Shown here is a 72-nucleotide RNA from Patiria pectinifera, a member of the family "tRNA". By type it is a transfer RNA.

[Rfam]
RNA sequence: GUGGACUUAGUUUAAAAGAUAAAACAAUUGAUUUGCAAUCAGUAACUCCAAGUUUAACUCUCGGAGUCCACA
Numbered sequence: 001g002u003g004g005a006c007u008u009a010g011u012u013u014a015a016a017a018g019a020u021a022a023a024a025c026a027a028u029u030g031a032u033u034u035g036c037a038a039u040c041a042g043u044a045a046c047u048c049c050a051a052g053u054u055u056a057a058c059u060c061u062c063g064g065a066g067u068c069c070a071c072a
Stems, first nucleotide, its partner, number of pairs: 001071007010025004027043005048064002051061002